[Rfam]
RNA sequence: AAAAUUUUUUGGCUUCGGUAUUGGUAUCUCAUCGUCAUUCGUACUUCUCUCUCUCGCCUCGGUUAGUUUCACCGAGGUUUUU
Numbered sequence: 001a002a003a004a005u006u007u008u009u010u011g012g013c014u015u016c017g018g019u020a021u022u023g024g025u026a027u028c029u030c031a032u033c034g035u036c037a038u039u040c041g042u043a044c045u046u047c048u049c050u051c052u053c054u055c056g057c058c059u060c061g062g063u064u065a066g067u068u069u070c071a072c073c074g075a076g077g078u079u080u081u082u
Stems, first nucleotide, its partner, number of pairs: 056078008
The family of this 82-nucleotide sequence from Nostoc minutum is "Photosynthesis regulatory RNA1".
The match comes from Rfam's covariance-model search (48 bits).
From the family's description: Formerly known as Syr1 discovered in Synechocystis sp PCC 6803, is a regulatory factor controlling photosynthetic functions. PsrR1 interacts with the ribosome binding regions of several photosynthesis-related mRNAs. In particular, psaL mRNA is processed by RNase E only in the presence of PsrR1.